[Rfam]
RNA sequence: UGCAGGGUAAUUAGACUGGCACGGGCGUCGGGGUUUUUACCUCUACGCCCGUGCUCGCAUGUUAAGGGCUAUUAAAAGAAA
Dot-bracket structure: ..(((..........)))(((((((((..(((........)))..)))))))))...........................
Numbered sequence: 001u002g003c004a005g006g007g008u009a010a011u012u013a014g015a016c017u018g019g020c021a022c023g024g025g026c027g028u029c030g031g032g033g034u035u036u037u038u039a040c041c042u043c044u045a046c047g048c049c050c051g052u053g054c055u056c057g058c059a060u061g062u063u064a065a066g067g068g069c070u071a072u073u074a075a076a077a078g079a080a081a
Stems, first nucleotide, its partner, number of pairs: 003018003019054009030043003
A member of the RNA family "tpke11" from [Enterobacter] lignolyticus, 81 nucleotides long. In Yersinia located in ICR upstream dnaJ (chaperone)gene. Has temperature responsive RNA structure. The family's consensus secondary structure was predicted with WAR. The match comes from Rfam's covariance-model search (69 bits). By type it is a small RNA.